The record is a 167-nucleotide RNA from Halalkalibacter nanhaiisediminis, which matches "glmS glucosamine-6-phosphate activated ribozyme aptamer" in Rfam. This entry contains a glucosamine-6-phosphate activated ribozyme that is found in the mRNA for GlmS. GlmS is an enzyme that uses fructose-6-phosphate and glutamine to generate glucosamine-6-phosphate. The ribozyme catalyses self cleavage of the glmS mRNA that is thought to regulate GlmS activity. By type it is a riboswitch. NCBI's taxonomy places the organism under Bacteria, Bacillati, Bacillota, Bacilli, Halalkalibacter.
Nucleotides: 167
Stems, first nucleotide, its partner, number of pairs: 020047008028038001056087005065076004088107006112157007125142007
Number, partner (000 for none) and nucleotide at each position: 001000a002000a003000c004000a005000u006000a007000c008000u009000a010000a011000a012000a013000g014000c015000g016000c017000c018000a019000g020047g021046a022045c023044u024043a025042c026041a027040c028038g029000a030000a031000c032000g033000u034000g035000c036000a037000a038028c039000u040027g041026u042025g043024u044023a045022g046021u047020u048000g049000a050000c051000g052000a053000g054000g055000a056087g057086a058085g059084g060083g061000u062000u063000u064000a065076u066075c067074g068073a069000g070000u071000a072000u073068u074067c075066g076065g077000c078000g079000g080000a081000u082000g083060c084059c085058c086057u087056c088107c089106g090105g091104u092103u093102g094000u095000a096000g097000c098000a099000u100000g101000a102093c103092a104091a105090c106089c107088g108000c109000u110000a111000a112157g113156c114155u115154u116153c117152u118151g119000a120000a121000a122000a123000a124000a125142c126141a127140a128139a129138g130137a131136g132000g133000c134000a135000a136131c137130u138129u139128u140127u141126u142125g143000g144000a145000c146000a147000a148000a149000g150000a151118c152117a153116g154115a155114a156113g157112c158000g159000a160000c161000c162000a163000u164000g165000c166000c167000u